RNA sequence: ACAAGAACAAUAACAAGCACUGCAACUCAGAAUAAGAACAAGACGAAACGGCUCACGCACAAUAAAAACAAGACGGCGGAGGCGCAGCUAACUGAUUCUUUUGGAGAGGAGUUGUGUUUGGGGCUUGCCCCACGAUCAGGCAGAGAACAACAAAAACUGCACUCAAAAGCAGCACCUGAACUGAUUGGAUCGAAAGAUCAGCAUCAUCUCGGCGACCAAAGCAAUCCGUUUGCUCUUCACCCCAGGUUUUGGGGUCGUUCACAAGCUUCGAGAUUUGUGGACAGGGCACUCAACAAAAACAAGAAGCCCAGCAGAAAAAUAAUAAGAGCACACAACGACUUGGUGGGGAGCUUCGGCUCCCCAUGUCGUUUCUCCCCCUCCCGCAUCACCGUCCAC
Dot-bracket structure: ................................................((.(((........................))).))..............(((((.........(((.................(((((((.................((((........))))........)))))))........................)))..))))).................(((((.......))))).......................((..(((((..................))))..................(.((...........(((((((((....))))))))..).)).).)..))...................
Rfam assigns this 396-nucleotide sequence from Pseudomonas entomophila to the family "Pseudomonas sRNA CrcZ". It is annotated as a small RNA. On this family, see Livny et al., Nucleic Acids Res 2006: "Identification of 17 Pseudomonas aeruginosa sRNAs and prediction of sRNA-encoding genes in 10 diverse pathogens using the bioinformatic tool sRNAPredict2". It is one of the family's seed sequences.